Shown here is a 75-nucleotide RNA sequence from Erythrobacter insulae, a member of the family "Makes More Granules Regulator RNA (mmgR)".
NCBI's taxonomy places the organism under Bacteria, Pseudomonadati, Pseudomonadota, Erythrobacteraceae, Erythrobacter.
Pairs were carried over by alignment from the consensus structure.
Gene Ontology terms of the family: response to nitrogen compound, protein binding and DNA-templated transcription, termination.
Nucleotides: 075
Base pairs, nucleotide, nucleotide: 008018009017010016011015039060040059041058042057043056044055045054046053
Number, partner (000 for none) and nucleotide at each position: 001000u002000c003000u004000u005000c006000g007000u008018g009017c010016c011015u012000u013000u014000u015011a016010g017009g018008c019000a020000u021000c022000c023000u024000c025000u026000c027000c028000c029000a030000a031000a032000c033000u034000u035000u036000u037000u038000u039060a040059g041058c042057c043056c044055g045054g046053c047000c048000u049000u050000u051000g052000u053046g054045c055044c056043g057042g058041g059040c060039u061000u062000u063000u064000u065000u066000u067000u068000g069000g070000u071000c072000u073000u074000g075000a